[Rfam]
This 136-nucleotide RNA from Pongo abelii belongs to the Rfam family "Small Cajal body specific RNA 4". The literature on the family includes a 2002 paper in EMBO J by Darzacq et al., "Cajal body-specific small nuclear RNAs: a novel class of 2'-O-methylation and pseudouridylation guide RNAs". The match comes from Rfam's covariance-model search (112 bits). Lineage of the source: Eukaryota > Opisthokonta > Metazoa > Eumetazoa > Pongo. Its family is annotated with Cajal body, nucleolus and RNA processing in the Gene Ontology. scaRNAs are a specific class of small nuclear RNAs which localise to the Cajal bodies and guide the modification of RNA polymerase II transcribed spliceosomal RNAs U1, U2, U4, U5 and U12. ACA26 belongs to the H/ACA box class of guide RNAs as it has the predicted hairpin-hinge-hairpin-tail structure, conserved H/ACA-box motifs and is found associated with GAR1. The family has 24 seed sequences and 634 matches in Rfam 15.1. The family's RNA type in Rfam is small Cajal body RNA. The family is grouped with related families in Rfam's "SCARNA4 clan".
RNA sequence: ACUAGAGGACUAAGGAGGCUGGGUCUGAUGAGCAAGAUUUUGCUGAUAUGUUGCUCCUAGAAAAAAGGGUUGGCAAGAGCAGCCCUCACUGCCUCACUGGAGACUAUCACAGGGCUGACUGUUCUACCCAACACUU
Numbered sequence: 001a002c003u004a005g006a007g008g009a010c011u012a013a014g015g016a017g018g019c020u021g022g023g024u025c026u027g028a029u030g031a032g033c034a035a036g037a038u039u040u041u042g043c044u045g046a047u048a049u050g051u052u053g054c055u056c057c058u059a060g061a062a063a064a065a066a067g068g069g070u071u072g073g074c075a076a077g078a079g080c081a082g083c084c085c086u087c088a089c090u091g092c093c094u095c096a097c098u099g100g101a102g103a104c105u106a107u108c109a110c111a112g113g114g115c116u117g118a119c120u121g122u123u124c125u126a127c128c129c130a131a132c133a134c135u136u
Base pairs, nucleotide, nucleotide: 002060003059005056006055007054009052017044018043019042021040022039023038024037025036026035067129068128069127070126078120079119080117081116082115083114084113085112086111090109091108